[Rfam]
RNA sequence: AAAGAUGAUUCAGAAGAGGGAAAAGAAGCCGAGAGAGAACCAAAAGCUCUGAGGAAUAACUCUCAGGCAACAGGACUGAGUCAUAAUC
Numbered sequence: 001a002a003a004g005a006u007g008a009u010u011c012a013g014a015a016g017a018g019g020g021a022a023a024a025g026a027a028g029c030c031g032a033g034a035g036a037g038a039a040c041c042a043a044a045a046g047c048u049c050u051g052a053g054g055a056a057u058a059a060c061u062c063u064c065a066g067g068c069a070a071c072a073g074g075a076c077u078g079a080g081u082c083a084u085a086a087u088c
Stems, first nucleotide, its partner, number of pairs: 006083008028068003031064002035062003
This 88-nucleotide sequence belongs to the Rfam family "Glycine riboswitch aptamer".
Rfam describes the family as follows. This family represents the bacterial glycine riboswitch.
Gene Ontology term of the family: glycine biosynthetic process.
Pairs were carried over by alignment from the consensus structure.
A search with the family's covariance model found it, with a score of 33 bits.